RNA sequence: CCCGGGUUUCCCAGUGCAGCCCCUGAAUGAGCUGUAGUAUUUUCCUUAUAAGAUUGGGCCCCAAGGCUGGCGGCGGUGCCGCCCAGAGCCUAAGAGGAUUAUAAAGGUCAGGCGAAGUGGGGCCGGGGGAUGAG
Dot-bracket structure: .......(((((......(((((..............................((((((.(....((.((((....))))))...).)))))).........................)))))..)))))....
small Cajal body-specific RNA 17: a 134-nucleotide RNA sequence from Cnephaeus nilssonii. Taxonomically the source falls in Cnephaeus (Eukaryota, Dipnotetrapodomorpha, Tetrapoda, Yangochiroptera). On this family, see Tycowski et al., Curr Biol 2004: "Guide RNAs with 5' Caps and Novel Box C/D snoRNA-like Domains for Modification of snRNAs in Metazoa". Its family is annotated with Cajal body, RNA processing and nucleolus in the Gene Ontology. It is annotated as a small Cajal body RNA.